[Rfam]
RNA sequence: CCCUUAUCUUUUAAAAGUUUCAAUUUGGUCCUUUAUCUUUAUUUUAGGUUUCAAGUUGGUCCCUUCCGUCAAUGUUUUUACUAUUACCGUUAAAUUUGGACACAUGUCAUCUGUCCAAGUGUGCCACGUGUCCAAAGUUAACGGAAAUAGUAAAAAAUUUGACGGAAGGGACCAACUUGAAACUUAAAAUAAAGAUAAGGGACCAAUUUGGAACUUUUAAAAGAUAAUGGA
Numbered sequence: 001c002c003c004u005u006a007u008c009u010u011u012u013a014a015a016a017g018u019u020u021c022a023a024u025u026u027g028g029u030c031c032u033u034u035a036u037c038u039u040u041a042u043u044u045u046a047g048g049u050u051u052c053a054a055g056u057u058g059g060u061c062c063c064u065u066c067c068g069u070c071a072a073u074g075u076u077u078u079u080a081c082u083a084u085u086a087c088c089g090u091u092a093a094a095u096u097u098g099g100a101c102a103c104a105u106g107u108c109a110u111c112u113g114u115c116c117a118a119g120u121g122u123g124c125c126a127c128g129u130g131u132c133c134a135a136a137g138u139u140a141a142c143g144g145a146a147a148u149a150g151u152a153a154a155a156a157a158u159u160u161g162a163c164g165g166a167a168g169g170g171a172c173c174a175a176c177u178u179g180a181a182a183c184u185u186a187a188a189a190u191a192a193a194g195a196u197a198a199g200g201g202a203c204c205a206a207u208u209u210g211g212a213a214c215u216u217u218u219a220a221a222a223g224a225u226a227a228u229g230g231a
Stems, first nucleotide, its partner, number of pairs: 002229001004227005023208001025206001027204003031200013045186003
A member of the RNA family "MIR2655 microRNA precursor family" from Trifolium subterraneum, 231 nucleotides long. NCBI's taxonomy places the organism under Eukaryota, Streptophyta, Streptophytina, Mesangiospermae, Trifolium. The family's consensus secondary structure was predicted with RNAalifold.